RNA sequence: UUGUCCCCUGGAGUUCCCUGCAAACACUUCACAAGCUAGACCAUAUAUAGUAUGCCCUUGCACAAUGUGGUAUCCAGUUACCUAGCUAGUGAAGUGUUUGGGGGAACUCUAGGUGUUAC
Numbered sequence: 001u002u003g004u005c006c007c008c009u010g011g012a013g014u015u016c017c018c019u020g021c022a023a024a025c026a027c028u029u030c031a032c033a034a035g036c037u038a039g040a041c042c043a044u045a046u047a048u049a050g051u052a053u054g055c056c057c058u059u060g061c062a063c064a065a066u067g068u069g070g071u072a073u074c075c076a077g078u079u080a081c082c083u084a085g086c087u088a089g090u091g092a093a094g095u096g097u098u099u100g101g102g103g104g105a106a107c108u109c110u111a112g113g114u115g116u117u118a119c
Base pairs, nucleotide, nucleotide: 005115007113008112009111011109012108013107014106015105016104017103018102019101022099023098024097025096026095027094028093029092030091031090032089034087035086036085037084038083039082
Dot-bracket structure: ....(.(((.(((((((((..(((((((((((.((((((..........................................)))))).))))))))))).))))))))).))).)....